[Rfam]
RNA sequence: GGUCAUGCUUUUCCACAGCUUUCUUGAACUUCUUUUUCUGCUAAUUAAUCUCUAGGAUUAACAGUAGUACCCCUGGAAGCUCAAGAAAGCUGUGGGAGAACAUGGCUA
Numbered sequence: 001g002g003u004c005a006u007g008c009u010u011u012u013c014c015a016c017a018g019c020u021u022u023c024u025u026g027a028a029c030u031u032c033u034u035u036u037u038c039u040g041c042u043a044a045u046u047a048a049u050c051u052c053u054a055g056g057a058u059u060a061a062c063a064g065u066a067g068u069a070c071c072c073c074u075g076g077a078a079g080c081u082c083a084a085g086a087a088a089g090c091u092g093u094g095g096g097a098g099a100a101c102a103u104g105g106c107u108a
Stems, first nucleotide, its partner, number of pairs: 003105005013095003017091006024084004029079005
About this RNA
MIR396 microRNA precursor family: a 108-nucleotide RNA sequence from Juglans regia. Its family is annotated with miRNA-mediated post-transcriptional gene silencing and RISC complex in the Gene Ontology. It scores 88 bits against the family's covariance model. The family's consensus secondary structure was predicted with WAR. Rfam 15.1 lists 744 matches to the family in 207 species.